[Rfam]
RNA sequence: AGUGAUAAAGGCAAACUCAGUGAGAGCUGAGGACGCAAAGCCACGGGUCUAGCUAAAAGAUGAUAGAUAGCCGGGUUACCAAAC
Numbered sequence: 001a002g003u004g005a006u007a008a009a010g011g012c013a014a015a016c017u018c019a020g021u022g023a024g025a026g027c028u029g030a031g032g033a034c035g036c037a038a039a040g041c042c043a044c045g046g047g048u049c050u051a052g053c054u055a056a057a058a059g060a061u062g063a064u065a066g067a068u069a070g071c072c073g074g075g076u077u078a079c080c081a082a083a084c
Base pairs, nucleotide, nucleotide: 003081004080011036012035016031017030018029019028020027021026034070039077040076041075042074044073045072046071047068048067049066050065051064

c-di-GMP-I-GGC riboswitch aptamer: an 84-nucleotide RNA from Desulfosporosinus acididurans.
A reference for the family is Weinberg et al. (2017), "Bioinformatic analysis of riboswitch structures uncovers variant classes with altered ligand specificity", Proc Natl Acad Sci U S A.
The organism belongs to Desulfosporosinus, within Bacteria.